[Rfam]
RNA: mir-2807 microRNA precursor family
RNA sequence: CUAACUCAAAUUUGUAUGGAGCUAGAACAGCUUCCCUUCGUUUGCCGCUAGGGGCGCUGUUCCAAAUCCAUACAAAUUUGAGUUA
Numbered sequence: 001c002u003a004a005c006u007c008a009a010a011u012u013u014g015u016a017u018g019g020a021g022c023u024a025g026a027a028c029a030g031c032u033u034c035c036c037u038u039c040g041u042u043u044g045c046c047g048c049u050a051g052g053g054g055c056g057c058u059g060u061u062c063c064a065a066a067u068c069c070a071u072a073c074a075a076a077u078u079u080g081a082g083u084u085a
Stems, first nucleotide, its partner, number of pairs: 008079009018069001020067001023064001025062005035053003040048002